[Rfam]
RNA sequence: AAUGAAUGAUGACAAACGGUUUCAGUCCCGAAUGAUGUCCGUGAUUACCUACCACCUUGAGAUCAUU
Numbered sequence: 001a002a003u004g005a006a007u008g009a010u011g012a013c014a015a016a017c018g019g020u021u022u023c024a025g026u027c028c029c030g031a032a033u034g035a036u037g038u039c040c041g042u043g044a045u046u047a048c049c050u051a052c053c054a055c056c057u058u059g060a061g062a063u064c065a066u067u
Stems, first nucleotide, its partner, number of pairs: 001067004

This 67-nucleotide sequence from Eleutherodactylus coqui belongs to the Rfam family "Small nucleolar RNA SNORD73".
Rfam 15.1 lists 769 matches to the family in 586 species.
It scores 44 bits against the family's covariance model.
It is annotated as a C/D-box small nucleolar RNA.